The family of this 57-nucleotide RNA sequence from Coregonus sp. 'balchen' is "UnaL2 LINE 3' element". The organism belongs to Coregonus, within Eukaryota.
RNA sequence: AAUAUAUAAUAAUGUAUGCAGUCGCUCUGGAUAAGAGUGUCUGCUAAAUGACUAAAA
Numbered sequence: 001a002a003u004a005u006a007u008a009a010u011a012a013u014g015u016a017u018g019c020a021g022u023c024g025c026u027c028u029g030g031a032u033a034a035g036a037g038u039g040u041c042u043g044c045u046a047a048a049u050g051a052c053u054a055a056a057a
Base pairs, nucleotide, nucleotide: 013046014044015043016042023039024038025037026036027035028034
Annotation:
It is annotated as a cis-regulatory element. A search with the family's covariance model found it, with a score of 58 bits. The base pairs follow the family's consensus structure, which is taken from published work.